[Rfam]
RNA: tRNA
Organism: Pseudolabrys sp. Root1462
RNA sequence: UGCGGCGUAGCUCAACUGGAUAGAGCGCCUGCUUUCUACCGAUUCUCAUCCUCGACAAGGGAGAAUUUAGGGGCAGGAGAAUGUGGGUUCAAGUCCCGCCGCCGCGC
Numbered sequence: 001u002g003c004g005g006c007g008u009a010g011c012u013c014a015a016c017u018g019g020a021u022a023g024a025g026c027g028c029c030u031g032c033u034u035u036c037u038a039c040c041g042a043u044u045c046u047c048a049u050c051c052u053c054g055a056c057a058a059g060g061g062a063g064a065a066u067u068u069a070g071g072g073g074c075a076g077g078a079g080a081a082u083g084u085g086g087g088u089u090c091a092a093g094u095c096c097c098g099c100c101g102c103c104g105c106g107c
Base pairs, nucleotide, nucleotide: 001106002105003104004103005102006101007100010026011025012024013023028077029076030075031074032073033072034071035070083099084098085097086096087095